[Rfam]
RNA: nqrA-Marinomonas RNA
Organism: Marinomonas sp. MED121
RNA sequence: AUCUUUAUAAUGCGUCGGUUUUUUGGUGAAGUGAGUUUACGUUAAAAGGCUGCUUUAGUAACAGCCGAUGGAUUGUGAAUGUUUUCCCGGAGGGGGUCACAGAAAUCACGUAAUGCGCUUUUGUGUUCAAUUU
Numbered sequence: 001a002u003c004u005u006u007a008u009a010a011u012g013c014g015u016c017g018g019u020u021u022u023u024u025g026g027u028g029a030a031g032u033g034a035g036u037u038u039a040c041g042u043u044a045a046a047a048g049g050c051u052g053c054u055u056u057a058g059u060a061a062c063a064g065c066c067g068a069u070g071g072a073u074u075g076u077g078a079a080u081g082u083u084u085u086c087c088c089g090g091a092g093g094g095g096g097u098c099a100c101a102g103a104a105a106u107c108a109c110g111u112a113a114u115g116c117g118c119u120u121u122u123g124u125g126u127u128c129a130a131u132u133u
Base pairs, nucleotide, nucleotide: 009127010126011125012124013123028121029120030119031118032117033116038112039111040110041109042108048066049065050064051063052062054061055060073102074101075100076099077098078097085096086095087094088093